[Rfam]
Overview: Rfam assigns this 61-nucleotide RNA sequence from Panagrellus redivivus to the family "mir-7939 microRNA precursor family". Gene Ontology terms of the family: miRNA-mediated post-transcriptional gene silencing and RISC complex. The match comes from Rfam's covariance-model search (76 bits). Taxonomically the source falls in Panagrellus (Eukaryota, Eumetazoa, Chromadorea, Panagrolaimomorpha).
RNA sequence: CAUGGGCUCUCAAGCCAUCCAUGUUACCAUUCAAAUCAUGAAUGUUUUGGAGGCCCGUGGC
Numbered sequence: 001c002a003u004g005g006g007c008u009c010u011c012a013a014g015c016c017a018u019c020c021a022u023g024u025u026a027c028c029a030u031u032c033a034a035a036u037c038a039u040g041a042a043u044g045u046u047u048u049g050g051a052g053g054c055c056c057g058u059g060g061c
Stems, first nucleotide, its partner, number of pairs: 003057002006054003010050005016044003020040001022038002